[Rfam]
RNA sequence: AGGUGGCAUGAAUGAUGAUUCGAUUAGAUGAGUGAGAGGUUUUUACUUCUCUGAUCAAACUUACGAGGCUUAUUGAUAUUCUGACUUGCCAUCU
Numbered sequence: 001a002g003g004u005g006g007c008a009u010g011a012a013u014g015a016u017g018a019u020u021c022g023a024u025u026a027g028a029u030g031a032g033u034g035a036g037a038g039g040u041u042u043u044u045a046c047u048u049c050u051c052u053g054a055u056c057a058a059a060c061u062u063a064c065g066a067g068g069c070u071u072a073u074u075g076a077u078a079u080u081c082u083g084a085c086u087u088g089c090c091a092u093c094u
Base pairs, nucleotide, nucleotide: 001094002093003092004091005090006089007088008087010085
The family of this 94-nucleotide sequence from Cuscuta europaea is "Small nucleolar RNA Z266". The family has 11 seed sequences and 719 matches in Rfam 15.1. NCBI's taxonomy places the organism under Eukaryota, Spermatophyta, Pentapetalae, Cuscuteae, Cuscuta subgen. Cuscuta.